RNA sequence: GCUGGUGGAGAUGAUGACAAUUUUUUCCCCGUCAGAGCGACACUGUUGAUUUCUCGCAGUUCAAGCCAGAUCGUGUCUGAUGCACCAGC
Numbered sequence: 001g002c003u004g005g006u007g008g009a010g011a012u013g014a015u016g017a018c019a020a021u022u023u024u025u026u027c028c029c030c031g032u033c034a035g036a037g038c039g040a041c042a043c044u045g046u047u048g049a050u051u052u053c054u055c056g057c058a059g060u061u062c063a064a065g066c067c068a069g070a071u072c073g074u075g076u077c078u079g080a081u082g083c084a085c086c087a088g089c
Stems, first nucleotide, its partner, number of pairs: 001089007009081001
Dot-bracket structure: (((((((.(.......................................................................).)))))))

A member of the RNA family "Small nucleolar SNORD12/SNORD106" from Columbina picui, 89 nucleotides long.
On this family, see Huttenhofer et al., EMBO J 2001: "RNomics: an experimental approach that identifies 201 candidates for novel, small, non-messenger RNAs in mouse".
A search with the family's covariance model found it, with a score of 75 bits.
Clan: SNORD12 clan.